This 113-nucleotide sequence from Acidaminococcus fermentans belongs to the Rfam family "FMN riboswitch aptamer (RFN element)".
RNA sequence: UUUUGUCUUUGGGGAGGGGUGCGAUUCCCUACCGGCGGUAAAGUCCGCGAGCCUUGGCACGAAUCGGUGAAAUUCCGAUACCGACAGUACAGUCUGGAUGAGAAAAGACAGGU
Numbered sequence: 001u002u003u004u005g006u007c008u009u010u011g012g013g014g015a016g017g018g019g020u021g022c023g024a025u026u027c028c029c030u031a032c033c034g035g036c037g038g039u040a041a042a043g044u045c046c047g048c049g050a051g052c053c054u055u056g057g058c059a060c061g062a063a064u065c066g067g068u069g070a071a072a073u074u075c076c077g078a079u080a081c082c083g084a085c086a087g088u089a090c091a092g093u094c095u096g097g098a099u100g101a102g103a104a105a106a107g108a109c110a111g112g113u
Base pairs, nucleotide, nucleotide: 003111004110005109006108007107008106009105010104017029018028019027031093032092033083034082035048036047037046038045043081044080053057063079064078065077066076067075085096086095087094
Lineage of the source: Bacteria > Bacillati > Acidaminococcaceae > Acidaminococcus > Acidaminococcus fermentans.